A member of the RNA family "mir-36 microRNA precursor family" from Caenorhabditis brenneri, 100 nucleotides long. Clan: mir-36 clan. The base pairs follow the family's consensus structure, which was predicted with WAR. On this family, see Lim et al., Genes Dev 2003: "The microRNAs of Caenorhabditis elegans". Taxonomically the source falls in Caenorhabditis (Eukaryota, Ecdysozoa, Rhabditina, Peloderinae).
RNA sequence: AUUCGUCGACUGGACCGGACCUCUGCCAGUUUUUACCGCUGUGAUACUCCAAGAGACGAUUAUCACCGGGUGAAAAUUGGUAGAGGUCCGGUCCUUUCUU
Numbered sequence: 001a002u003u004c005g006u007c008g009a010c011u012g013g014a015c016c017g018g019a020c021c022u023c024u025g026c027c028a029g030u031u032u033u034u035a036c037c038g039c040u041g042u043g044a045u046a047c048u049c050c051a052a053g054a055g056a057c058g059a060u061u062a063u064c065a066c067c068g069g070g071u072g073a074a075a076a077u078u079g080g081u082a083g084a085g086g087u088c089c090g091g092u093c094c095u096u097u098c099u100u
Stems, first nucleotide, its partner, number of pairs: 016090007024082014039068001041066006